[Rfam]
RNA sequence: GCUUAUAACUAGACUUAGGCCUAGUAAAUUAUCUAGUAUUCUUACUAGUGCACUUUACUAGGCCUAGGCUAGUAUUAGUUUACCCUAGAGGAUAAAGGCUUUAGGAAUAUAGCUUCUCUAGGAGUGUUAUAGCUCUUUACGUAAUACCCUAGGGUAGACUAAGGUUUAUAUAUCUAUAAGAAUACUAGCGUAAUAGUUAUUAGUAACCUAUCUUAAAAUAUAG
Numbered sequence: 001g002c003u004u005a006u007a008a009c010u011a012g013a014c015u016u017a018g019g020c021c022u023a024g025u026a027a028a029u030u031a032u033c034u035a036g037u038a039u040u041c042u043u044a045c046u047a048g049u050g051c052a053c054u055u056u057a058c059u060a061g062g063c064c065u066a067g068g069c070u071a072g073u074a075u076u077a078g079u080u081u082a083c084c085c086u087a088g089a090g091g092a093u094a095a096a097g098g099c100u101u102u103a104g105g106a107a108u109a110u111a112g113c114u115u116c117u118c119u120a121g122g123a124g125u126g127u128u129a130u131a132g133c134u135c136u137u138u139a140c141g142u143a144a145u146a147c148c149c150u151a152g153g154g155u156a157g158a159c160u161a162a163g164g165u166u167u168a169u170a171u172a173u174c175u176a177u178a179a180g181a182a183u184a185c186u187a188g189c190g191u192a193a194u195a196g197u198u199a200u201u202a203g204u205a206a207c208c209u210a211u212c213u214u215a216a217a218a219u220a221u222a223g
Base pairs, nucleotide, nucleotide: 001204002203003202005200006199007198008197009196010195011194016066017065018064019063020062021061022060023059070187071186072185073184074183075182076181208223209222210221211220
Shown here is a 223-nucleotide part of an RNA from Epichloe typhina, a member of the family "Eukaryotic large subunit ribosomal RNA". Rfam links the family to the GO terms structural constituent of ribosome and ribosome. The base pairs follow the family's consensus structure, which is taken from published work. NCBI's taxonomy places the organism under Eukaryota, saccharomyceta, Clavicipitaceae, Epichloe, Epichloe typhina.